[Rfam]
RNA sequence: UUGACUGCGGUGAUGACGCUUUUGUGGACUAGAGUUUCUGAUUUUUGGGUUCUACCCAAAAAUUGAAGACAAACCCUUGGCUGUCUGAGCGCUACA
Numbered sequence: 001u002u003g004a005c006u007g008c009g010g011u012g013a014u015g016a017c018g019c020u021u022u023u024g025u026g027g028a029c030u031a032g033a034g035u036u037u038c039u040g041a042u043u044u045u046u047g048g049g050u051u052c053u054a055c056c057c058a059a060a061a062a063u064u065g066a067a068g069a070c071a072a073a074c075c076c077u078u079g080g081c082u083g084u085c086u087g088a089g090c091g092c093u094a095c096a
Stems, first nucleotide, its partner, number of pairs: 001096001004093001006091003035068004042061004047057002
A member of the RNA family "Small nucleolar RNA Z157/R69/R10" from Macleaya cordata, 96 nucleotides long. The match comes from Rfam's covariance-model search (70 bits). NCBI's taxonomy places the organism under Eukaryota, Tracheophyta, Papaveraceae, Papaveroideae, Macleaya. The family has 10 seed sequences and 836 matches in Rfam 15.1. On this family, see Chen et al., Nucleic Acids Res 2003: "The high diversity of snoRNAs in plants: identification and comparative study of 120 snoRNA genes from Oryza sativa". Its Rfam clan is "SNORD52 clan".